This 96-nucleotide RNA from Penicillium oxalicum belongs to the Rfam family "tRNA". The family's consensus secondary structure is taken from published work. The family's RNA type in Rfam is transfer RNA.
RNA sequence: GCUCCUUUCGUGUAGUUGGUUAUCACGUGGGAUUUUGACUAGUUCAUUCGAUCGGUCUGUCUUCCCAAAACGCAAGUUCGAAUCUUGCAAGGAGCU
Numbered sequence: 001g002c003u004c005c006u007u008u009c010g011u012g013u014a015g016u017u018g019g020u021u022a023u024c025a026c027g028u029g030g031g032a033u034u035u036u037g038a039c040u041a042g043u044u045c046a047u048u049c050g051a052u053c054g055g056u057c058u059g060u061c062u063u064c065c066c067a068a069a070a071c072g073c074a075a076g077u078u079c080g081a082a083u084c085u086u087g088c089a090a091g092g093a094g095c096u
Base pairs, nucleotide, nucleotide: 001095002094003093004092005091006090007089010026011025012024028067029066030065031064032063072088073087074086075085076084